[Rfam]
RNA sequence: GUACGGUGGAGCAGCUACCACAUCAAAAACGGGCGAGCCGAAAAGCCAGAUGAGUAGGAAUAUU
Number, nucleotide and partner (000 for none) at each position: 001g000002u000003a000004c000005g000006g021007u020008g019009g018010a000011g000012c000013a000014g000015c000016u000017a000018c009019c008020a007021c006022a000023u000024c000025a000026a000027a000028a000029a000030c000031g000032g047033g046034c045035g000036a000037g000038c058039c057040g000041a000042a000043a000044a000045g034046c033047c032048a000049g000050a000051u000052g000053a000054g000055u000056a000057g039058g038059a000060a000061u000062a000063u000064u000